RNA sequence: GUCAUGUUCCGGGGACGGCGCAAUUCCGUACCGGCGGUCAUAGUCCGCGACCCGACGUGGAGUAGUCACGUCGGCCGAUCUGGUGAGAUUCCAGAACCGACAGUCACAGUCUGGAUGGGAGGAGCAUGGU
Numbered sequence: 001g002u003c004a005u006g007u008u009c010c011g012g013g014g015a016c017g018g019c020g021c022a023a024u025u026c027c028g029u030a031c032c033g034g035c036g037g038u039c040a041u042a043g044u045c046c047g048c049g050a051c052c053c054g055a056c057g058u059g060g061a062g063u064a065g066u067c068a069c070g071u072c073g074g075c076c077g078a079u080c081u082g083g084u085g086a087g088a089u090u091c092c093a094g095a096a097c098c099g100a101c102a103g104u105c106a107c108a109g110u111c112u113g114g115a116u117g118g119g120a121g122g123a124g125c126a127u128g129g130u
Stems, first nucleotide, its partner, number of pairs: 003128008016028003030110002032099002034048004043097002052074002079095005101113003
Dot-bracket structure: ..((((((((.....(((.......))).[[((((((.....[[))))...((...................))....(((((.......)))))]])).(((.....]]))).......))))))))..

Source information: A member of the RNA family "FMN riboswitch aptamer (RFN element)" from Actinomyces sp. 2119, 130 nucleotides long. A search with the family's covariance model found it, with a score of 99 bits. NCBI's taxonomy places the organism under Bacteria, Bacillati, Actinomycetes, Actinomycetaceae, Actinomyces.